[Rfam]
The family of this 124-nucleotide RNA sequence from Lentzea tibetensis is "TPP riboswitch aptamer (THI element)". Pairs were carried over by alignment from the consensus structure, which is taken from published work. Taxonomically the source falls in Lentzea (Bacteria, Bacillati, Pseudonocardiales, Pseudonocardiaceae). From the family's description: Vitamin B(1) in its active form thiamin pyrophosphate (TPP) is an essential coenzyme that is synthesised by coupling of pyrimidine and thiazole moieties in bacteria.

RNA sequence: AACUCAAAACGCGGGAGCUCGCGCUGAAGCGGGCUGAGAGGGUGACUGGAGCUGGGCUCCGGCGUCACCGACCGCCUGAACCUGACCGGGUAAUGCCGGCGUAGGGAGGAAUGUCGUGACGGCA
Numbered sequence: 001a002a003c004u005c006a007a008a009a010c011g012c013g014g015g016a017g018c019u020c021g022c023g024c025u026g027a028a029g030c031g032g033g034c035u036g037a038g039a040g041g042g043u044g045a046c047u048g049g050a051g052c053u054g055g056g057c058u059c060c061g062g063c064g065u066c067a068c069c070g071a072c073c074g075c076c077u078g079a080a081c082c083u084g085a086c087c088g089g090g091u092a093a094u095g096c097c098g099g100c101g102u103a104g105g106g107a108g109g110a111a112u113g114u115c116g117u118g119a120c121g122g123c124a
Base pairs, nucleotide, nucleotide: 006112010108011075012074013073014072017034018033019032020031021030041069042068043067044066045065081105082104083103084102086099087098088097089096